[Rfam]
The family of this 332-nucleotide RNA from Aquaticitalea lipolytica is "Bacterial RNase P class A". NCBI's taxonomy places the organism under Bacteria, Bacteroidota, Flavobacteriia, Flavobacteriales, Aquaticitalea. It is annotated as a ribozyme.
RNA sequence: CAAGUAAUUCGCCUUAUCGCUCAAGUUUAAUAUUUGGGAGGAAAGUCCGAACACCAUAGUGCAACAUAGUGGUUAAUGGCCACCAGUCGUGAGGCUAGGAAAAGUGCAACAGAAAGUAUGUACAGGUAAUGCUGUAGUGAAACCAGGUAAACUCUAUGUGGUGCAAUGUCAUGUAUACCAACGUUUGAGGGCUGCACGCUCGAUUGUUGGAGGGUAGACAGCUAAAAUGUGCUGGUAACAGUACAUUCAGAUAAAUGAUAAGGGCUUUUUCUUUUUAGAAUUCUUUUCUAAAAAGAAAAGUACAGAAUUCGGCUUAUAGAUUUACUUGCUUA
Dot-bracket structure: (((((((.((((((((((.(((((((.....)))))))....[[[.[[[[[((((...[[[[.((((((((((.....)))))(((((....)))).)((...((((.............(((((......)))))..........))..)))))))))))))...((((.......(((((......((((.]]]]))))....)))))......))))......((((((((....))))))))..........)))))))............................................]]]]]]]].).)).)))))))....
Numbered sequence: 001c002a003a004g005u006a007a008u009u010c011g012c013c014u015u016a017u018c019g020c021u022c023a024a025g026u027u028u029a030a031u032a033u034u035u036g037g038g039a040g041g042a043a044a045g046u047c048c049g050a051a052c053a054c055c056a057u058a059g060u061g062c063a064a065c066a067u068a069g070u071g072g073u074u075a076a077u078g079g080c081c082a083c084c085a086g087u088c089g090u091g092a093g094g095c096u097a098g099g100a101a102a103a104g105u106g107c108a109a110c111a112g113a114a115a116g117u118a119u120g121u122a123c124a125g126g127u128a129a130u131g132c133u134g135u136a137g138u139g140a141a142a143c144c145a146g147g148u149a150a151a152c153u154c155u156a157u158g159u160g161g162u163g164c165a166a167u168g169u170c171a172u173g174u175a176u177a178c179c180a181a182c183g184u185u186u187g188a189g190g191g192c193u194g195c196a197c198g199c200u201c202g203a204u205u206g207u208u209g210g211a212g213g214g215u216a217g218a219c220a221g222c223u224a225a226a227a228u229g230u231g232c233u234g235g236u237a238a239c240a241g242u243a244c245a246u247u248c249a250g251a252u253a254a255a256u257g258a259u260a261a262g263g264g265c266u267u268u269u270u271c272u273u274u275u276u277a278g279a280a281u282u283c284u285u286u287u288c289u290a291a292a293a294a295g296a297a298a299a300g301u302a303c304a305g306a307a308u309u310c311g312g313c314u315u316a317u318a319g320a321u322u323u324a325c326u327u328g329c330u331u332a
Stems, first nucleotide, its partner, number of pairs: 001328007009320002011317001012263007020038007043315003047312005052163004059197004064159005069083005084098001085096004099154002104152002106148002121136005167220004178210005189201004227246008